The record is a 116-nucleotide RNA from Litoreibacter arenae, which matches "ALIL pseudoknot" in Rfam.
The base pairs follow the family's consensus structure, which is taken from published work.
It scores 107 bits against the family's covariance model.
RNA sequence: CGCUUUUUUGCCCAGGCGGAGAUCGACCGCCCUCUGAGGAAAUGAAGAUGUUCAUCGAUGACUAUCGCGAGAGCUACGGGGUCGAGCCGAUCUGCGACGUUCUGCCGAUCGCCCCG
Numbered sequence: 001c002g003c004u005u006u007u008u009u010g011c012c013c014a015g016g017c018g019g020a021g022a023u024c025g026a027c028c029g030c031c032c033u034c035u036g037a038g039g040a041a042a043u044g045a046a047g048a049u050g051u052u053c054a055u056c057g058a059u060g061a062c063u064a065u066c067g068c069g070a071g072a073g074c075u076a077c078g079g080g081g082u083c084g085a086g087c088c089g090a091u092c093u094g095c096g097a098c099g100u101u102c103u104g105c106c107g108a109u110c111g112c113c114c115c116g
Base pairs, nucleotide, nucleotide: 015031016030017029018028019027077116078115079114080113081112088111089110091108092107094105095104096103